[Rfam]
RNA sequence: UGGCGAGAAUCAUUUGAAUCAAGCAAUGUAGUGAUUCAAAUGAUUCUCAC
Numbered sequence: 001u002g003g004c005g006a007g008a009a010u011c012a013u014u015u016g017a018a019u020c021a022a023g024c025a026a027u028g029u030a031g032u033g034a035u036u037c038a039a040a041u042g043a044u045u046c047u048c049a050c
Base pairs, nucleotide, nucleotide: 003050005048006047007046008045009044010043011042012041013040014039015038016037017036018035019034020033021032
The record is a 50-nucleotide RNA from Berberidopsis corallina, which matches "Plastid-ccsA-ndhD-2 3UTR RNA" in Rfam. From the family's description: Plastid ccsA-ndhD-2 is a non-coding RNA (ncRNA) recognised in plastids. It was found in the three prime untranslated region (3UTR) of ccsA and ndhD genes, its 3UTR location suggests a role in transcript maturation. A reference for the family is Richter et al. (2023), "Retrograde signaling in plants: A critical review focusing on the GUN pathway and beyond", Plant Commun. By type it is a cis-regulatory element. The family's consensus secondary structure was predicted with LocARNA.